[Rfam]
RNA sequence: UAGUUUCUUCAUUCGGUUCUCUAGCUUUAUGAUAUUUCAUAAACUCAUACAGCUAGAUAACCAAAGAGAAAAACUA
Number, nucleotide and partner (000 for none) at each position: 001u076002a075003g074004u073005u072006u000007c000008u069009u068010c000011a000012u065013u064014c000015g062016g061017u060018u059019c000020u057021c056022u055023a054024g053025c052026u051027u000028u049029a048030u047031g046032a045033u000034a000035u000036u000037u000038c000039a000040u000041a000042a000043a000044c000045u032046c031047a030048u029049a028050c000051a026052g025053c024054u023055a022056g021057a020058u000059a018060a017061c016062c015063a000064a013065a012066g000067a000068g009069a008070a000071a000072a005073a004074c003075u002076a001